[Rfam]
RNA sequence: GUGGUCUUUAUGAAGGCAGGUGCAGAAACUAUGCACUAGUGGUGCCUGUCUGAUGUUUGGCCAU
Numbered sequence: 001g002u003g004g005u006c007u008u009u010a011u012g013a014a015g016g017c018a019g020g021u022g023c024a025g026a027a028a029c030u031a032u033g034c035a036c037u038a039g040u041g042g043u044g045c046c047u048g049u050c051u052g053a054u055g056u057u058u059g060g061c062c063a064u
Stems, first nucleotide, its partner, number of pairs: 001064005015050009029039003